Rfam assigns this 83-nucleotide RNA from Lutispora thermophila to the family "Group II catalytic intron D1-D4-1".

RNA sequence: GAAUCACGUUUGAAACAAGAUUUACCAUGAGAAGUCAACAGAGGUCAUAGUAUCAGGGUAGUCAUGAAUAUCUUGGGAAGGAC
Numbered sequence: 001g002a003a004u005c006a007c008g009u010u011u012g013a014a015a016c017a018a019g020a021u022u023u024a025c026c027a028u029g030a031g032a033a034g035u036c037a038a039c040a041g042a043g044g045u046c047a048u049a050g051u052a053u054c055a056g057g058g059u060a061g062u063c064a065u066g067a068a069u070a071u072c073u074u075g076g077g078a079a080g081g082a083c
Stems, first nucleotide, its partner, number of pairs: 001022002004020002008016003035042002044083003053076006

Background
For this family Rfam cites "Control of branch-site choice by a group II intron" (Chu et al., EMBO J, 2001).